[Rfam]
RNA sequence: UUGAGUUGCAAAGAAUUCCCGAUAGGGUUCGCCACGGCGAAGAUGCCUUGUAACCGAGAUAUUAAAGGGGGAAACACAAGAAAAUG
Numbered sequence: 001u002u003g004a005g006u007u008g009c010a011a012a013g014a015a016u017u018c019c020c021g022a023u024a025g026g027g028u029u030c031g032c033c034a035c036g037g038c039g040a041a042g043a044u045g046c047c048u049u050g051u052a053a054c055c056g057a058g059a060u061a062u063u064a065a066a067g068g069g070g071g072a073a074a075c076a077c078a079a080g081a082a083a084a085u086g
Stems, first nucleotide, its partner, number of pairs: 016073005024048003028041005054068002
Rfam assigns this 86-nucleotide RNA from Lacticaseibacillus brantae to the family "SAM-III riboswitch aptamer (SMK box)". Pairs were carried over by alignment from the consensus structure, which is taken from published work.